This 90-nucleotide RNA from Cucumis sativus belongs to the Rfam family "mir-399 microRNA precursor family". Rfam's curators write: mir-399 was identified in both Arabidopsis thaliana and Oryza sativa computationally and was later experimentally verified. mir-399 is thought to target mRNAs coding for a phosphatase transporter. The mature sequence is excised from the 3' arm of the hairpin.
[Rfam]
RNA sequence: AGAAGAAUGAGAGGGCGGAUCUUUUUUGGCAGGUGGAUUCAUCUAAAUUAAAAUUGAUCUGCCAAAAGAGACUUGCCCUGCCAUUCAACU
Numbered sequence: 001a002g003a004a005g006a007a008u009g010a011g012a013g014g015g016c017g018g019a020u021c022u023u024u025u026u027u028g029g030c031a032g033g034u035g036g037a038u039u040c041a042u043c044u045a046a047a048u049u050a051a052a053a054u055u056g057a058u059c060u061g062c063c064a065a066a067a068g069a070g071a072c073u074u075g076c077c078c079u080g081c082c083a084u085u086c087a088a089c090u
Base pairs, nucleotide, nucleotide: 005086006085007084008083009082012079013078014077015076016075017074018073021070022069023068024067027064028063029062030061031060032059033058034057
The source organism's lineage runs through Eukaryota, Viridiplantae, Streptophyta, Cucurbitales and Cucumis. The family's consensus secondary structure was predicted with PFOLD. Rfam links the family to the GO terms miRNA-mediated post-transcriptional gene silencing and RISC complex. A search with the family's covariance model found it, with a score of 57 bits.